The record is an 84-nucleotide RNA sequence from Cricetulus griseus, which matches "mir-877 microRNA precursor family" in Rfam.

[Rfam]
RNA sequence: GUAGAGGAGACAGCGUAGGGGACACAGGUAAGCCUUGGGGGGUCCUUGGACCCUUGGCCAUGUGUCCUCUUCUCCUCCUCCAGG
Numbered sequence: 001g002u003a004g005a006g007g008a009g010a011c012a013g014c015g016u017a018g019g020g021g022a023c024a025c026a027g028g029u030a031a032g033c034c035u036u037g038g039g040g041g042g043u044c045c046u047u048g049g050a051c052c053c054u055u056g057g058c059c060a061u062g063u064g065u066c067c068u069c070u071u072c073u074c075c076u077c078c079u080c081c082a083g084g
Base pairs, nucleotide, nucleotide: 004080005079006078007077008076009075013074015072017070018069019068020067021066022065023064024063025062026061028059036057038055039054040053041052042051043050044049
Rfam links the family to the GO terms RISC complex and miRNA-mediated post-transcriptional gene silencing.